Shown here is a 167-nucleotide RNA from Abrus precatorius, a member of the family "small nucleolar RNA snoR143".

[Rfam]
Nucleotides: 167
Stems, first nucleotide, its partner, number of pairs: 002059005010050002013048003017044005023038004103161008120143007
Number, partner (000 for none) and nucleotide at each position: 001000u002059u003058g004057c005056a006055c007000u008000g009000u010050g011049u012000a013048u014047c015046a016000u017044a018043g019042g020041u021040c022000u023038c024037u025036u026035u027000g028000a029000u030000u031000a032000u033000u034000u035026a036025g037024a038023g039000u040021g041020g042019c043018c044017u045000u046015u047014g048013a049011g050010c051000u052000a053000c054000g055006g056005u057004g058003c059002a060000u061000a062000a063000a064000a065000u066000a067000a068000g069000a070000g071000c072000u073000g074000a075000u076000u077000u078000g079000u080000c081000a082000g083000c084000a085000g086000g087000c088000a089000g090000c091000c092000a093000g094000a095000c096000a097000a098000c099000u100000g101000c102000u103161g104160a105159g106158g107157u108156g109155g110154a111000u112000c113000c114000a115000c116000a117000g118000a119000u120143g121142a122141a123140c124139a125138g126137c127000u128000u129000g130000u131000u132000u133000u134000a135000a136000u137126g138125u139124u140123g141122u142121u143120u144000g145000u146000c147000u148000a149000c150000u151000a152000a153000u154110u155109u156108c157107a158106c159105c160104u161103u162000a163000a164000a165000u166000u167000u
Gene Ontology terms of the family: nucleolus and RNA processing. Lineage of the source: Eukaryota > Streptophyta > Streptophytina > Mesangiospermae > Abrus.